This 72-nucleotide sequence from Synechococcus elongatus belongs to the Rfam family "Cyano-1 RNA".
Rfam classes the family as a small RNA.
Rfam's curators put it in the seed alignment.
RNA sequence: GGGCGAGUGAGGAGUGAACGCUCAGAACAACUCCAAGGUCGAAACACGGAAAGACCUUGGAGUUGUUCUUUG
Number, nucleotide and partner (000 for none) at each position: 001g000002g000003g000004c000005g000006a000007g000008u000009g000010a000011g000012g000013a000014g000015u000016g000017a000018a000019c000020g000021c000022u000023c000024a069025g068026a067027a066028c065029a000030a000031c062032u061033c060034c059035a058036a000037g000038g055039u054040c053041g000042a000043a000044a000045c000046a000047c000048g000049g000050a000051a000052a000053g040054a039055c038056c000057u000058u035059g034060g033061a032062g031063u000064u000065g028066u027067u026068c025069u024070u000071u000072g000
The organism belongs to Synechococcus elongatus, within Bacteria. The family's consensus secondary structure is taken from published work.